[Rfam]
RNA sequence: AUAAAGACGGUGAAGAGAAAAAGUAAGAGAAUUGAUUUUAGAACAGAGAGCUUCGGUAGCUGAAAAGAAGUUAAAAUCAUCAUCUGAACAAUGGCCUCGGAGUUGCGGACUGAAAGUUAUUUAUUCGAGUAGGUUACGACGAGAUUUGGUACUCGUUAUCUAUACCACAGUAUAAGAGUCAGUUCCAUCGACUUUCGUACUUGCUGAGGCUGUUUUACGUGAGUAAGACAGUAAAUUAAGGUGGUACCACGUGAAUUCCAACCACGUCCUUAUC
Numbered sequence: 001a002u003a004a005a006g007a008c009g010g011u012g013a014a015g016a017g018a019a020a021a022a023g024u025a026a027g028a029g030a031a032u033u034g035a036u037u038u039u040a041g042a043a044c045a046g047a048g049a050g051c052u053u054c055g056g057u058a059g060c061u062g063a064a065a066a067g068a069a070g071u072u073a074a075a076a077u078c079a080u081c082a083u084c085u086g087a088a089c090a091a092u093g094g095c096c097u098c099g100g101a102g103u104u105g106c107g108g109a110c111u112g113a114a115a116g117u118u119a120u121u122u123a124u125u126c127g128a129g130u131a132g133g134u135u136a137c138g139a140c141g142a143g144a145u146u147u148g149g150u151a152c153u154c155g156u157u158a159u160c161u162a163u164a165c166c167a168c169a170g171u172a173u174a175a176g177a178g179u180c181a182g183u184u185c186c187a188u189c190g191a192c193u194u195u196c197g198u199a200c201u202u203g204c205u206g207a208g209g210c211u212g213u214u215u216u217a218c219g220u221g222a223g224u225a226a227g228a229c230a231g232u233a234a235a236u237u238a239a240g241g242u243g244g245u246a247c248c249a250c251g252u253g254a255a256u257u258c259c260a261a262c263c264a265c266g267u268c269c270u271u272a273u274c
Stems, first nucleotide, its partner, number of pairs: 007103002015098003026085003031080001039074001041072001050071005106138002108135004140155003209232009238271004249267005
The family of this 274-nucleotide RNA sequence from Lederbergia galactosidilytica is "T-box leader". It scores 108 bits against the family's covariance model.